The record is a 133-nucleotide sequence, which matches "Small nucleolar RNA SNORA51" in Rfam. The family's RNA type in Rfam is H/ACA-box small nucleolar RNA. Pairs were carried over by alignment from the consensus structure, which was predicted with PFOLD. It is one of the family's seed sequences.
[Rfam]
RNA sequence: GGCCUCCUUGUGCUUACCACAGGCUGUGUCCCUACACUGACUGUAUAGAAAGAGGAGUCAGAAUAAACCUACCCCAGGUACACUUUAGCCUAGGCCACUGUACCUGGUCUGUAUUGUGAAUGGGGAGACAUGU
Numbered sequence: 001g002g003c004c005u006c007c008u009u010g011u012g013c014u015u016a017c018c019a020c021a022g023g024c025u026g027u028g029u030c031c032c033u034a035c036a037c038u039g040a041c042u043g044u045a046u047a048g049a050a051a052g053a054g055g056a057g058u059c060a061g062a063a064u065a066a067a068c069c070u071a072c073c074c075c076a077g078g079u080a081c082a083c084u085u086u087a088g089c090c091u092a093g094g095c096c097a098c099u100g101u102a103c104c105u106g107g108u109c110u111g112u113a114u115u116g117u118g119a120a121u122g123g124g125g126a127g128a129c130a131u132g133u
Stems, first nucleotide, its partner, number of pairs: 002059001004057005020043003026037004072125005086111003090107005
About the family: ACA51 is a member of the H/ACA class of snoRNA that guide the sites of modification of uridines to pseudouridines. The family has 9 seed sequences and 2,121 matches in Rfam 15.1.